Rfam assigns this 76-nucleotide RNA sequence from Alligator sinensis to the family "Mammalian CPEB3 ribozyme". The family has 14 seed sequences and 5,706 matches in Rfam 15.1. About the family: The mammalian CPEB3 ribozyme is a self cleaving RNA located in the second intron of the CPEB3 gene which belongs to a family of genes regulating messenger RNA polyadenylation. The organism belongs to Alligator, within Eukaryota.
[Rfam]
RNA sequence: GUUGCAAGUUUGAGACCACAGCAGAAGUGCUCAUGGCACAGCCUGUCAGAUUCCAAUGAAAUCUGCACAUUCUGCU
Numbered sequence: 001g002u003u004g005c006a007a008g009u010u011u012g013a014g015a016c017c018a019c020a021g022c023a024g025a026a027g028u029g030c031u032c033a034u035g036g037c038a039c040a041g042c043c044u045g046u047c048a049g050a051u052u053c054c055a056a057u058g059a060a061a062u063c064u065g066c067a068c069a070u071u072c073u074g075c076u
Stems, first nucleotide, its partner, number of pairs: 012043001016041001020076007027039003047065006